[Rfam]
RNA sequence: GUCCUCCUGGUGCUUAUCACAGGCUGUGUCUUUAUACUGACUAUAUAGAAAGAAAACACAAAGUAAACCUACUGCAUGUACAUCUCAACCCAGGUCCUAGGCCUGGUCUGUGUUGUGAAUGGGGAGACACGA
Numbered sequence: 001g002u003c004c005u006c007c008u009g010g011u012g013c014u015u016a017u018c019a020c021a022g023g024c025u026g027u028g029u030c031u032u033u034a035u036a037c038u039g040a041c042u043a044u045a046u047a048g049a050a051a052g053a054a055a056a057c058a059c060a061a062a063g064u065a066a067a068c069c070u071a072c073u074g075c076a077u078g079u080a081c082a083u084c085u086c087a088a089c090c091c092a093g094g095u096c097c098u099a100g101g102c103c104u105g106g107u108c109u110g111u112g113u114u115g116u117g118a119a120u121g122g123g124g125a126g127a128c129a130c131g132a
Stems, first nucleotide, its partner, number of pairs: 005056001008053001021042002026037004072124002075121003086110002090106006
A member of the RNA family "Small nucleolar RNA SNORA51" from Castor canadensis, 132 nucleotides long. Rfam 15.1 lists 2,121 matches to the family in 210 species. The family's RNA type in Rfam is H/ACA-box small nucleolar RNA. Its family is annotated with RNA processing and nucleolus in the Gene Ontology. From the family's description: ACA51 is a member of the H/ACA class of snoRNA that guide the sites of modification of uridines to pseudouridines.